[Rfam]
RNA: c-di-AMP riboswitch aptamer (ydaO/yuaA leader)
RNA sequence: AUCCGAAACCCACCCACGUACGGCAGGAGCGGGGGACCCAGGUAAGCCGCCGGUCCGGUAUCCGGAACGGCUAGGGGUGAAGUCGCAUGUCCAUGCGGCCAGGCAUCUCCCGUCUGAACCCGACAGCUCACCUCGUAGGCGCCGGAGAGGAAAAUC
Numbered sequence: 001a002u003c004c005g006a007a008a009c010c011c012a013c014c015c016a017c018g019u020a021c022g023g024c025a026g027g028a029g030c031g032g033g034g035g036a037c038c039c040a041g042g043u044a045a046g047c048c049g050c051c052g053g054u055c056c057g058g059u060a061u062c063c064g065g066a067a068c069g070g071c072u073a074g075g076g077g078u079g080a081a082g083u084c085g086c087a088u089g090u091c092c093a094u095g096c097g098g099c100c101a102g103g104c105a106u107c108u109c110c111c112g113u114c115u116g117a118a119c120c121c122g123a124c125a126g127c128u129c130a131c132c133u134c135g136u137a138g139g140c141g142c143c144g145g146a147g148a149g150g151a152a153a154a155u156c
Stems, first nucleotide, its partner, number of pairs: 002028003029136006039074001075121003083098004101115004